RNA sequence: CUUCCUGUUUUAGCACCAUCCACUUGCUUCCUCAAAAGGUGUGUGGCUAUGCCAACAGGAGAAAGAAAAUGUCUGUCAUAAUCUGAAGUGGUGGAUGGUCACACUUUCUCCACCUCUAUAUGAAUUGACAGUACAUUUCUCU
Numbered sequence: 001c002u003u004c005c006u007g008u009u010u011u012a013g014c015a016c017c018a019u020c021c022a023c024u025u026g027c028u029u030c031c032u033c034a035a036a037a038g039g040u041g042u043g044u045g046g047c048u049a050u051g052c053c054a055a056c057a058g059g060a061g062a063a064a065g066a067a068a069a070u071g072u073c074u075g076u077c078a079u080a081a082u083c084u085g086a087a088g089u090g091g092u093g094g095a096u097g098g099u100c101a102c103a104c105u106u107u108c109u110c111c112a113c114c115u116c117u118a119u120a121u122g123a124a125u126u127g128a129c130a131g132u133a134c135a136u137u138u139c140u141c142u
Stems, first nucleotide, its partner, number of pairs: 004059004016046004075129004093117003

Shown here is a 142-nucleotide sequence from Danio rerio, a member of the family "Small nucleolar RNA SNORA29". On this family, see Huttenhofer et al., EMBO J 2001: "RNomics: an experimental approach that identifies 201 candidates for novel, small, non-messenger RNAs in mouse". Rfam describes the family as follows. ACA29 is a member of the H/ACA class of snoRNA that guide the sites of modification of uridines to pseudouridines. Its family is annotated with nucleolus and RNA processing in the Gene Ontology. The match comes from Rfam's covariance-model search (62 bits).